[Rfam]
RNA sequence: UGGCUGUAGCUACAUGAAUGCAUUUGAUUGAGAAGUUAACUGGCCGGUUUUUGUUCUCUCCUGUCAACAAAUCUGCUUACCGAACUUCUCACACUU
Numbered sequence: 001u002g003g004c005u006g007u008a009g010c011u012a013c014a015u016g017a018a019u020g021c022a023u024u025u026g027a028u029u030g031a032g033a034a035g036u037u038a039a040c041u042g043g044c045c046g047g048u049u050u051u052u053g054u055u056c057u058c059u060c061c062u063g064u065c066a067a068c069a070a071a072u073c074u075g076c077u078u079a080c081c082g083a084a085c086u087u088c089u090c091a092c093a094c095u096u
Stems, first nucleotide, its partner, number of pairs: 030090008042077003046073004051067003
RNA: Small nucleolar RNA snoR109
Organism: Ipomoea nil